[Rfam]
Nucleotides: 511
Base pairs, nucleotide, nucleotide: 006390007389008388009387011385012384014382018328019327021325026321027320029318031316032315035313037311038310039309040308042306045305047303048302050300051299052298054233055232058229059228060227061226062225063224064223065111066110068108075103077102078101079100082097083096084095085094086093117222118221119220120219122217123216127212129210130209132206133204134203135202138197139196140195149190150189155186158185159184160183161178162177166173234293237290239288240287241286249283251281252280257276258275260271262269329342330341331340351379352378354376355375356374357373362370391431392430394428395427396426397425400422401421403418404417405416407415437476438475439474440473443470444469445468446467447465448464449463450462451461452460477510478509480505481504482503485500486497487496488495
Number, partner (000 for none) and nucleotide at each position: 001000u002000u003000g004000g005000c006390g007389g008388u009387g010000a011385a012384g013000u014382c015000c016000c017000a018328g019327u020000u021325g022000c023000c024000c025000c026321c027320g028000g029318u030000g031316u032315c033000g034000g035313c036000g037311a038310g039309c040308g041000c042306c043000u044000g045305g046000u047303c048302g049000c050300c051299g052298a053000a054233g055232u056000g057000g058229u059228u060227g061226c062225c063224g064223u065111c066110g067000g068108c069000g070000a071000g072000g073000a074000c075103g076000c077102c078101g079100g080000c081000c082097a083096c084095g085094g086093u087000c088000u089000g090000g091000u092000c093086g094085c095084c096083g097082u098000a099000c100079u101078u102077g103075c104000c105000g106000g107000u108068g109000g110066u111065g112000a113000u114000c115000u116000u117222g118221u119220u120219g121000a122217u123216c124000u125000u126000g127212c128000c129210g130209u131000g132206c133204g134203c135202g136000a137000u138197c139196a140195g141000g142000u143000a144000c145000a146000c147000c148000g149190c150189g151000u152000c153000g154000a155186u156000g157000g158185g159184g160183c161178u162177g163000c164000c165000g166173g167000c168000c169000u170000c171000c172000a173166c174000g175000a176000u177162c178161g179000a180000c181000u182000c183160g184159c185158c186155g187000g188000c189150c190149g191000a192000g193000a194000c195140c196139u197138g198000c199000u200000g201000c202135u203134g204133c205000u206132g207000g208000a209130a210129c211000c212127g213000g214000u215000c216123g217122g218000c219120c220119a221118g222117c223064g224063c225062g226061g227060u228059g229058a230000g231000g232055a233054c234293c235000u236000c237290g238000c239288g240287g241286u242000c243000c244000u245000c246000g247000u248000a249283c250000c251281c252280c253000u254000u255000g256000a257276g258275c259000a260271c261000c262269g263000g264000c265000a266000g267000u268000u269262c270000c271260g272000c273000g274000a275258g276257c277000g278000u279000c280252g281251g282000c283249g284000g285000c286241a287240c288239c289000a290237c291000c292000c293234g294000c295000a296000c297000c298052u299051c300050g301000u302048c303047g304000c305045c306042g307000a308040c309039g310038u311037u312000g313035g314000a315032g316031a317000a318029g319000a320027u321026g322000a323000g324000c325021c326000g327019a328018c329342c330341g331340c332000u333000g334000c335000c336000c337000u338000g339000c340331g341330u342329g343000u344000a345000g346000c347000u348000c349000a350000g351379c352378c353000u354376g355375c356374g357373g358000u359000u360000g361000a362370c363000c364000c365000g366000g367000u368000a369000c370362g371000c372000g373357c374356c375355g376354c377000c378352g379351g380000c381000c382014g383000c384012c385011u386000g387009c388008a389007c390006c391431c392430a393000c394428g395427g396426c397425a398000g399000g400422a401421u402000c403418c404417g405416c406000a407415g408000c409000a410000g411000c412000c413000a414000c415407c416405g417404c418403g419000a420000g421401g422400u423000g424000a425397u426396g427395c428394c429000c430392u431391g432000c433000a434000u435000c436000u437476g438475c439474g440473g441000c442000a443470c444469g445468g446467a447465c448464u449463u450462g451461g452460u453000c454000g455000u456000g457000g458000u459000g460452g461451c462450c463449a464448g465447g466000u467446u468445c469444c470443g471000c472000g473440c474439c475438g476437c477510c478509g479000c480505g481504g482503u483000a484000c485500c486497c487496a488495g489000g490000c491000u492000c493000a494000a495488c496487u497486g498000c499000u500485g501000c502000u503482g504481c505480c506000c507000a508000u509478u510477g511000u

Shown here is a 511-nucleotide sequence from Solihabitans fulvus, a member of the family "Saccharopolyspora sRNA 350". For this family Rfam cites "Prediction and characterization of small non-coding RNAs related to secondary metabolites in Saccharopolyspora erythraea" (Liu et al., PLoS One, 2013). Its family is annotated with regulation of secondary metabolite biosynthetic process in the Gene Ontology. Rfam 15.1 lists 1,170 matches to the family in 705 species.